[Rfam]
Notes:
A member of the RNA family "Archaeal large subunit ribosomal RNA" from Halovenus carboxidivorans, 533 nucleotides of a longer RNA. Gene Ontology terms of the family: structural constituent of ribosome and ribosome. The match comes from Rfam's covariance-model search (2836 bits). Taxonomically the source falls in Halovenus (Archaea, Methanobacteriati, Methanobacteriota, Halobacteriales). Its Rfam clan is "LSU clan".
RNA sequence: CUGCUAUGCCGCCUGGUGAAUGGCUCGGCUCGGAAGCCGACGAAGGACGUGCCAAGCUGCGAAAAGCCUGAGGGAGCCGCACGGAGGCUAAGAACUCAGGGUUUCCGAAUGGGAAUCCCCACCGCAAUUGCUUCGCGCAAUGGGGAACGCCGGGAACUGAAACAUCUCAGUACCGGCAGGAAGAGAAAACGCAAUGUGAUGUCGUUAGUAACUGCGGGUGAACGCGACACAGCUCAAACUGAAGGUCUCACGACCGAUGUGGUGUAUGGGCUGACGAUCAUCACUCGAACACCGUCACGAAGUCCCCUGGAACGGGGCGCGAAACAGGGUGACAGCCCCGUACUGACGGCAAGUACAGUGUGAGUUAGUUCCGGAGUAGCAAGGGUUGGAAAUCCCUUGUGAAUAUGGCAGGCAUCGACUGCUAAAGCUAAACACUCUCCGAGACCGAUAGCGAACAAGUAGCGUGAGCGAACGCUGCAAAGUACCCUCCAACGGGAGGUGAAAUAGGGCCUGAAAUCAGGUGGCGAUGGAGC
Numbered sequence: 001c002u003g004c005u006a007u008g009c010c011g012c013c014u015g016g017u018g019a020a021u022g023g024c025u026c027g028g029c030u031c032g033g034a035a036g037c038c039g040a041c042g043a044a045g046g047a048c049g050u051g052c053c054a055a056g057c058u059g060c061g062a063a064a065a066g067c068c069u070g071a072g073g074g075a076g077c078c079g080c081a082c083g084g085a086g087g088c089u090a091a092g093a094a095c096u097c098a099g100g101g102u103u104u105c106c107g108a109a110u111g112g113g114a115a116u117c118c119c120c121a122c123c124g125c126a127a128u129u130g131c132u133u134c135g136c137g138c139a140a141u142g143g144g145g146a147a148c149g150c151c152g153g154g155a156a157c158u159g160a161a162a163c164a165u166c167u168c169a170g171u172a173c174c175g176g177c178a179g180g181a182a183g184a185g186a187a188a189a190c191g192c193a194a195u196g197u198g199a200u201g202u203c204g205u206u207a208g209u210a211a212c213u214g215c216g217g218g219u220g221a222a223c224g225c226g227a228c229a230c231a232g233c234u235c236a237a238a239c240u241g242a243a244g245g246u247c248u249c250a251c252g253a254c255c256g257a258u259g260u261g262g263u264g265u266a267u268g269g270g271c272u273g274a275c276g277a278u279c280a281u282c283a284c285u286c287g288a289a290c291a292c293c294g295u296c297a298c299g300a301a302g303u304c305c306c307c308u309g310g311a312a313c314g315g316g317g318c319g320c321g322a323a324a325c326a327g328g329g330u331g332a333c334a335g336c337c338c339c340g341u342a343c344u345g346a347c348g349g350c351a352a353g354u355a356c357a358g359u360g361u362g363a364g365u366u367a368g369u370u371c372c373g374g375a376g377u378a379g380c381a382a383g384g385g386u387u388g389g390a391a392a393u394c395c396c397u398u399g400u401g402a403a404u405a406u407g408g409c410a411g412g413c414a415u416c417g418a419c420u421g422c423u424a425a426a427g428c429u430a431a432a433c434a435c436u437c438u439c440c441g442a443g444a445c446c447g448a449u450a451g452c453g454a455a456c457a458a459g460u461a462g463c464g465u466g467a468g469c470g471a472a473c474g475c476u477g478c479a480a481a482g483u484a485c486c487c488u489c490c491a492a493c494g495g496g497a498g499g500u501g502a503a504a505u506a507g508g509g510c511c512u513g514a515a516a517u518c519a520g521g522u523g524g525c526g527a528u529g530g531a532g533c
Stems, first nucleotide, its partner, number of pairs: 007526010022511001023475002027446002029443006035436002045106003048061003067100006076088003111120003127141005148179001149177005159166002189197002201228005211219002231429004239262003244255004272367004282360004296345002302318001304317004321325001327339003379400007407423005462469002